[Rfam]
RNA sequence: GGGUCGUGCUUUGCCGGUGGGACGGCAGACAGAUGGACCCGUCACGUCUGUAUUCUUGCGAGCGCUCCGCCGAGGUCCCGGCGGCGAGGGUG
Number, nucleotide and partner (000 for none) at each position: 001g040002g039003g038004u037005c036006g000007u000008g000009c000010u029011u028012u027013g026014c025015c024016g023017g000018u000019g000020g000021g000022a000023c016024g015025g014026c013027a012028g011029a010030c000031a000032g000033a000034u000035g000036g005037a004038c003039c002040c001041g000042u000043c000044a000045c000046g000047u000048c000049u000050g000051u000052a000053u000054u000055c000056u000057u000058g000059c000060g000061a000062g000063c092064g091065c090066u089067c088068c086069g085070c084071c083072g082073a000074g000075g000076u000077c000078c000079c000080g000081g000082c072083g071084g070085c069086g068087a000088g067089g066090g065091u064092g063